[Rfam]
RNA sequence: AAGUCUUUUAAACUAGUCCAGAGAGGCUGGGAAAGAUAUCUGUAAUAGAUAAAAUCCUUAUACCUCAUUUUGGUGUAAGGAUUUUUUUGA
Numbered sequence: 001a002a003g004u005c006u007u008u009u010a011a012a013c014u015a016g017u018c019c020a021g022a023g024a025g026g027c028u029g030g031g032a033a034a035g036a037u038a039u040c041u042g043u044a045a046u047a048g049a050u051a052a053a054a055u056c057c058u059u060a061u062a063c064c065u066c067a068u069u070u071u072g073g074u075g076u077a078a079g080g081a082u083u084u085u086u087u088u089g090a
Stems, first nucleotide, its partner, number of pairs: 003037007013030006040048003051085014